[Rfam]
Shown here is a 114-nucleotide RNA from Nicotiana tabacum, a member of the family "Plastid-psbA-1 3UTR RNA". For this family Rfam cites "Retrograde signaling in plants: A critical review focusing on the GUN pathway and beyond" (Richter et al., Plant Commun, 2023). The base pairs follow the family's consensus structure, which was predicted with LocARNA.
RNA sequence: CUGAAGUUCCAUUUACAAAUGGAUAAGAUUCCAGUCUAGUAUAUAAGAGGUCUAGAAAAGAAAGAAACAAUAAUCACUUUCUUGUUCUAUCAAGAGGGUGUUAUAUAUUUCGUC
Number, nucleotide and partner (000 for none) at each position: 001c000002u000003g000004a000005a000006g000007u000008u023009c022010c021011a020012u019013u000014u000015a000016c000017a000018a000019a012020u011021g010022g009023a008024u000025a000026a000027g000028a000029u000030u000031c000032c000033a000034g000035u000036c000037u000038a000039g000040u000041a000042u000043a000044u000045a000046a000047g000048a000049g000050g000051u000052c000053u000054a000055g000056a000057a000058a000059a000060g114061a000062a113063a000064g111065a110066a109067a108068c000069a106070a104071u103072a102073a101074u000075c100076a099077c098078u000079u096080u095081c094082u093083u092084g000085u000086u000087c000088u000089a000090u000091c000092a083093a082094g081095a080096g079097g000098g077099u076100g075101u073102u072103a071104u070105a000106u069107a000108u067109u066110u065111c064112g000113u062114c060